The family of this 524-nucleotide part of an RNA from Ignicoccus hospitalis is "Archaeal small subunit ribosomal RNA". NCBI's taxonomy places the organism under Archaea, Thermoproteati, Thermoproteota, Thermoprotei, Ignicoccus hospitalis. For this family Rfam cites "Crystal structure of the ribosome at 5.5 A resolution" (Yusupov et al., Science, 2001).
RNA sequence: ACUCCGGUUGAUCCUGCCGGACCCGACCGCUAUCGGGGUAAGGCUAAGCCAUGGGAGUCGAACGCCCGCCGCCGCGGGCGUGGCGGACGGCUGAGUAACACGUGGCUAACCUACCCUCGGGAGGGGGAUAACACCGGGAAACUGGUGCUAAUCCCCCAUAGGGGCGGAGGCCUGGAAGGGUUCCGCCCCGAAAGGGGCUCGGGGGGGAACGCCCCGAGUCCGCCCGAGGAUGGGGCCGCGCCCCAUCAGGUAGUUGGCGGGGUAAUGGCCCGCCAAGCCGAAGACGGGUAGGGGCCGUGGGAGCGGGAGCCCCCAGAUGGGCACUGAGACAAGGGCCCAGGCCCUACGGGGCGCACCAGGCGCGAAAACUCCGCAAUGCGGGCAACCGUGACGGGGUUACCCCGAGUGCCCCCUCUCCGGGGGCUUUUCCCCGCUGUAAACAGGCGGGGGUAAUAAGCGGGGGGCAAGUCUGGUGUCAGCCGCCGCGGUAAUACCAGCCCCGCGAGUGGUCGGGACGAUUAUUG
Numbered sequence: 001a002c003u004c005c006g007g008u009u010g011a012u013c014c015u016g017c018c019g020g021a022c023c024c025g026a027c028c029g030c031u032a033u034c035g036g037g038g039u040a041a042g043g044c045u046a047a048g049c050c051a052u053g054g055g056a057g058u059c060g061a062a063c064g065c066c067c068g069c070c071g072c073c074g075c076g077g078g079c080g081u082g083g084c085g086g087a088c089g090g091c092u093g094a095g096u097a098a099c100a101c102g103u104g105g106c107u108a109a110c111c112u113a114c115c116c117u118c119g120g121g122a123g124g125g126g127g128a129u130a131a132c133a134c135c136g137g138g139a140a141a142c143u144g145g146u147g148c149u150a151a152u153c154c155c156c157c158a159u160a161g162g163g164g165c166g167g168a169g170g171c172c173u174g175g176a177a178g179g180g181u182u183c184c185g186c187c188c189c190g191a192a193a194g195g196g197g198c199u200c201g202g203g204g205g206g207g208a209a210c211g212c213c214c215c216g217a218g219u220c221c222g223c224c225c226g227a228g229g230a231u232g233g234g235g236c237c238g239c240g241c242c243c244c245a246u247c248a249g250g251u252a253g254u255u256g257g258c259g260g261g262g263u264a265a266u267g268g269c270c271c272g273c274c275a276a277g278c279c280g281a282a283g284a285c286g287g288g289u290a291g292g293g294g295c296c297g298u299g300g301g302a303g304c305g306g307g308a309g310c311c312c313c314c315a316g317a318u319g320g321g322c323a324c325u326g327a328g329a330c331a332a333g334g335g336c337c338c339a340g341g342c343c344c345u346a347c348g349g350g351g352c353g354c355a356c357c358a359g360g361c362g363c364g365a366a367a368a369c370u371c372c373g374c375a376a377u378g379c380g381g382g383c384a385a386c387c388g389u390g391a392c393g394g395g396g397u398u399a400c401c402c403c404g405a406g407u408g409c410c411c412c413c414u415c416u417c418c419g420g421g422g423g424c425u426u427u428u429c430c431c432c433g434c435u436g437u438a439a440a441c442a443g444g445c446g447g448g449g450g451u452a453a454u455a456a457g458c459g460g461g462g463g464g465c466a467a468g469u470c471u472g473g474u475g476u477c478a479g480c481c482g483c484c485g486c487g488g489u490a491a492u493a494c495c496a497g498c499c500c501c502g503c504g505a506g507u508g509g510u511c512g513g514g515a516c517g518a519u520u521a522u523u524g
Base pairs, nucleotide, nucleotide: 004020005019006018007017008016022514023513024512025511026510027509028508029507030506031505033405034404035403036402037401038400039399040398041397042363048361049360050359052358053357054356057084058083059082062081063080064079065078066077067076068075091316092315093314101240102239103238104237105236106235107234110233111232115229116228117227118226119225120224121223123157124156125155126154132147133146134145135144136143137142162188163187164186165185166184167183168182169181171180172179195221196220197219198218199217200216201215202214203213204212242288243287244286249279250278251277254276255275256274257273258272259271260270261269291313292312293311294310295306296305297304298303318339319338320337321336322335341352342351343350344349369395371394372393373392377390378389379388380387381386408424409423410422411421412420413419429449430448431447432446433445434444435443457503458502459501460500461499462498470497471496472495473494479486480485